[Rfam]
The family of this 65-nucleotide sequence from Mesocricetus auratus is "mir-344 microRNA precursor family". Taxonomically the source falls in Mesocricetus (Eukaryota, Dipnotetrapodomorpha, Eutheria, Myomorpha). The literature on the family includes a 2010 paper in BMC Genomics by Linsen et al., "Small RNA expression and strain specificity in the rat".
RNA sequence: UAUCAAGUCAGGCUCCUGGCUACAGUCCAGCUCUUAGCUGGAUUUAGACAUAGCCUGACUGAAAA
Numbered sequence: 001u002a003u004c005a006a007g008u009c010a011g012g013c014u015c016c017u018g019g020c021u022a023c024a025g026u027c028c029a030g031c032u033c034u035u036a037g038c039u040g041g042a043u044u045u046a047g048a049c050a051u052a053g054c055c056u057g058a059c060u061g062a063a064a065a
Stems, first nucleotide, its partner, number of pairs: 007059003011055004017050002020047003024043001027041005